[Rfam]
RNA sequence: CUUCCCAUUGUACUGCCUCUUAUUUCUAUGGUAAAAUAAGAGUCUUUGCUGAUGGGAUAAAGAAACACUAGCCAUUGUCUGAAGGAGAAGAUUGAUAUUGUCUUUCUCCUAUAUGAAAUGGCCAAACAUGGCAUC
Numbered sequence: 001c002u003u004c005c006c007a008u009u010g011u012a013c014u015g016c017c018u019c020u021u022a023u024u025u026c027u028a029u030g031g032u033a034a035a036a037u038a039a040g041a042g043u044c045u046u047u048g049c050u051g052a053u054g055g056g057a058u059a060a061a062g063a064a065a066c067a068c069u070a071g072c073c074a075u076u077g078u079c080u081g082a083a084g085g086a087g088a089a090g091a092u093u094g095a096u097a098u099u100g101u102c103u104u105u106c107u108c109c110u111a112u113a114u115g116a117a118a119u120g121g122c123c124a125a126a127c128a129u130g131g132c133a134u135c
Stems, first nucleotide, its partner, number of pairs: 004056004017042003071122004088110001090108002
A member of the RNA family "Small nucleolar RNA SNORA29" from Anolis carolinensis, 135 nucleotides long. The family has 26 seed sequences and 960 matches in Rfam 15.1. It scores 86 bits against the family's covariance model. The base pairs follow the family's consensus structure, which was predicted with PFOLD. By type it is an H/ACA-box small nucleolar RNA. NCBI's taxonomy places the organism under Eukaryota, Craniata, Vertebrata, Sarcopterygii, Anolis.